The record is a 114-nucleotide sequence from Rhodococcus sp. AD45, which matches "SAM (S-adenosyl methionine) riboswitch aptamer" in Rfam. It scores 87 bits against the family's covariance model. The base pairs follow the family's consensus structure, which is taken from published work. SAM-IV is a mRNA element that regulates gene expression via direct sensing of S-adenosylmethionine (SAM or AdoMet). SAM-IV riboswitches share conserved nucleotide positions with the previously described SAM-I riboswitches sequence analysis and molecular recognition experiments suggest that SAM-I and SAM-IV riboswitches share similar ligand binding sites, but have different scaffolds.
RNA sequence: GGUGCAGAGUUCCAGCGACAAGGACCGGCUAGCUGGACGGCAACCCUUCAUGCCGAUGGGGUGCCCCGGGAUCACACCUGGCGACACGCGUGGUGUGUGUCGCAAGCGGCAGUU
Numbered sequence: 001g002g003u004g005c006a007g008a009g010u011u012c013c014a015g016c017g018a019c020a021a022g023g024a025c026c027g028g029c030u031a032g033c034u035g036g037a038c039g040g041c042a043a044c045c046c047u048u049c050a051u052g053c054c055g056a057u058g059g060g061g062u063g064c065c066c067c068g069g070g071a072u073c074a075c076a077c078c079u080g081g082c083g084a085c086a087c088g089c090g091u092g093g094u095g096u097g098u099g100u101c102g103c104a105a106g107c108g109g110c111a112g113u114u
Base pairs, nucleotide, nucleotide: 001078002077003076004075009038011037012036013035014034015033016032021030022029039065040064041063044061045060046059048056049055081103082102083101084100085099086098087097088096089095090094
Dot-bracket structure: ((((....(.((((((....((......)).)))))))(((..(((.((.....))..))).))).........))))..((((((((((...))))))))))...........